[Rfam]
RNA sequence: GACGGUAGAGUGCGUGACGUACUAGAUGUUCUGGACCCGGGGGCAGAACCCGGCGCCUCCACCAACAGCCCAUACGGUCGGGUCUCCGCGAGGAAAACGGUAGGACACCUUUCGGAAUAAAGAAUCCCGUUUGCUAAAUGACGUAUGGGUUGCUGAUGGGGGCGAAAUAGGAUCGACAGGCGUUGAAAGGUGAUGUGUGCCGUUCGGAAUGGUAUCCGCCGUUAUCGGGCCAAGCUUAGUAUCUGCAAACGAUAACUUCGCAAAGGAUUUCGCUGUCGCUGCCUGA
Numbered sequence: 001g002a003c004g005g006u007a008g009a010g011u012g013c014g015u016g017a018c019g020u021a022c023u024a025g026a027u028g029u030u031c032u033g034g035a036c037c038c039g040g041g042g043g044c045a046g047a048a049c050c051c052g053g054c055g056c057c058u059c060c061a062c063c064a065a066c067a068g069c070c071c072a073u074a075c076g077g078u079c080g081g082g083u084c085u086c087c088g089c090g091a092g093g094a095a096a097a098c099g100g101u102a103g104g105a106c107a108c109c110u111u112u113c114g115g116a117a118u119a120a121a122g123a124a125u126c127c128c129g130u131u132u133g134c135u136a137a138a139u140g141a142c143g144u145a146u147g148g149g150u151u152g153c154u155g156a157u158g159g160g161g162g163c164g165a166a167a168u169a170g171g172a173u174c175g176a177c178a179g180g181c182g183u184u185g186a187a188a189g190g191u192g193a194u195g196u197g198u199g200c201c202g203u204u205c206g207g208a209a210u211g212g213u214a215u216c217c218g219c220c221g222u223u224a225u226c227g228g229g230c231c232a233a234g235c236u237u238a239g240u241a242u243c244u245g246c247a248a249a250c251g252a253u254a255a256c257u258u259c260g261c262a263a264a265g266g267a268u269u270u271c272g273c274u275g276u277c278g279c280u281g282c283c284u285g286a
Base pairs, nucleotide, nucleotide: 001204002203003202004201005200015193017191018190027182028181029180031179032178033177037053038052039051040050041049054164055163056162057161058160059159060158205221206220207219
Dot-bracket structure: (((((.........(.((........(((.(((...(((((.......)))))(((((((.................................................................................................)))))))............)))))).......)).)......)))))(((...........))).................................................................

A member of the RNA family "permuted transfer-messenger RNA" from Roseibium sp. RKSG952, 286 nucleotides long.